[Rfam]
RNA sequence: AUAUACUAUUAGAGCGUUCCAAAGACAGCAGGUGAGAUUCGUCUCGUAAGUCCUGCCGAGGAUGGCAAACAUUUAUUGAUUGCUUUACCGUCCUCAUGUCCUGCAUGAGGACGGUUUCCUUUUUAGAAC
Number, nucleotide and partner (000 for none) at each position: 001a000002u000003a000004u000005a000006c000007u000008a000009u000010u000011a000012g000013a000014g000015c000016g000017u000018u000019c000020c000021a000022a000023a000024g000025a000026c000027a000028g056029c055030a054031g053032g052033u000034g045035a044036g043037a000038u000039u000040c000041g000042u000043c036044u035045c034046g000047u000048a000049a000050g000051u000052c032053c031054u030055g029056c028057c000058g000059a000060g000061g000062a000063u000064g000065g000066c000067a000068a000069a000070c000071a000072u000073u000074u000075a000076u000077u000078g000079a000080u000081u000082g000083c000084u000085u000086u000087a000088c114089c113090g112091u111092c110093c109094u108095c107096a106097u105098g000099u000100c000101c000102u000103g000104c000105a097106u096107g095108a094109g093110g092111a091112c090113g089114g088115u000116u000117u000118c000119c000120u000121u000122u000123u000124u000125a000126g000127a000128a000129c000

About this RNA:
The record is a 129-nucleotide RNA sequence from Ruminococcaceae bacterium AF10-16, which matches "Ribosomal protein L10 leader" in Rfam. A search with the family's covariance model found it, with a score of 66 bits. A reference for the family is Zengel and Lindahl (1994), "Diverse mechanisms for regulating ribosomal protein synthesis in Escherichia coli", Prog Nucleic Acid Res Mol Biol.